[Rfam]
RNA: Fungal signal recognition particle RNA
Organism: Rasamsonia emersonii
RNA sequence: AAUCUGUCACGGAUAGUCGAGUGGAAGGGCGACCGCAAGGUUGGCAACCCUGCUUAGGUAAUCACCAGCGAGUAAGCGUGCCUGGUUCGAAUCAUGGAGUCGCGGAUGUACUCGUGCGAGUAAUCCACGAUCGCUACAACGCGUUAAGCAAUGGAAGUGACACUUGAGGGAAGCAAUUCUGCAGAGACACUUCCACUCUGUGAUGGCGGUACCAGAUGACACCUUCUCGUUACAGGGAAGCCAACCGUUUGGUUGCACAACCACUAUAUCUU
Dot-bracket structure: .(((.......))).....(((((....(((((((.(.(((((((..(((........(....)....(((..(((.(((.((((((((.(((((((((.(.((..((((.(((((.((....)))))))....)))).)).)(...)...(((((((....(((....(((....)))....)))..))))))))))))))))..))).)))))....)))))).))).....)))..))))))).).)))))))....))))).......